About this RNA
This 125-nucleotide sequence from Rousettus aegyptiacus belongs to the Rfam family "Small nucleolar RNA SNORA77". Rfam 15.1 lists 843 matches to the family in 607 species. Rfam describes the family as follows. ACA63 (SNORA77) is a member of the H/ACA class of snoRNAs that guide the sites of modification of uridines to pseudouridines. This snoRNA was identified by computational screening and its expression in mouse experimentally verified by Northern blot and primer extension analysis. ACA63 is proposed to guide the pseudouridylation of 18S rRNA U814. It scores 123 bits against the family's covariance model. Its family is annotated with RNA processing and nucleolus in the Gene Ontology. Lineage of the source: Eukaryota > Dipnotetrapodomorpha > Eutheria > Boreoeutheria > Rousettus.

RNA sequence: GCAGACUCACUCUGUACCCGGCUGCAGUCCCAGGCGGGUGCUUUUUCUGUCUGCUACAAAAAUUUCUGGGGUGCUGUGAUUACCUUGACUUGUCAAGGGUGAUGCAGCUGCCCAGAGACAUAGGA
Numbered sequence: 001g002c003a004g005a006c007u008c009a010c011u012c013u014g015u016a017c018c019c020g021g022c023u024g025c026a027g028u029c030c031c032a033g034g035c036g037g038g039u040g041c042u043u044u045u046u047c048u049g050u051c052u053g054c055u056a057c058a059a060a061a062a063u064u065u066c067u068g069g070g071g072u073g074c075u076g077u078g079a080u081u082a083c084c085u086u087g088a089c090u091u092g093u094c095a096a097g098g099g100u101g102a103u104g105c106a107g108c109u110g111c112c113c114a115g116a117g118a119c120a121u122a123g124g125a
Base pairs, nucleotide, nucleotide: 001054002053003052004051005050006049014041015040016039017038018037019036020035022033023032024031065116066115067114068113069112070111073108074107075106076105077104078103081101082100083099084098085097